[Rfam]
A member of the RNA family "Vault RNA" from Paxillus involutus, 103 nucleotides long.
Taxonomically the source falls in Paxillus involutus (Eukaryota, Opisthokonta, Dikarya, Paxilineae).
For this family Rfam cites "Evolution of Vault RNAs" (Stadler et al., Mol Biol Evol, 2009).
This family of RNAs are found as part of the enigmatic vault ribonucleoprotein complex.
The family's RNA type in Rfam is non-coding RNA gene.
RNA sequence: GCGCUAUAGCCAAGUGGUUACGGCGACAGAUUCGAAUCAUCUUUGAUAUCUGUUACUCUUCGAGUGCGCAGGUUCGAAUCCUGCUGGCGUCGUGAGUGCUUUU
Numbered sequence: 001g002c003g004c005u006a007u008a009g010c011c012a013a014g015u016g017g018u019u020a021c022g023g024c025g026a027c028a029g030a031u032u033c034g035a036a037u038c039a040u041c042u043u044u045g046a047u048a049u050c051u052g053u054u055a056c057u058c059u060u061c062g063a064g065u066g067c068g069c070a071g072g073u074u075c076g077a078a079u080c081c082u083g084c085u086g087g088c089g090u091c092g093u094g095a096g097u098g099c100u101u102u103u
Stems, first nucleotide, its partner, number of pairs: 002098003009088004014084004024076003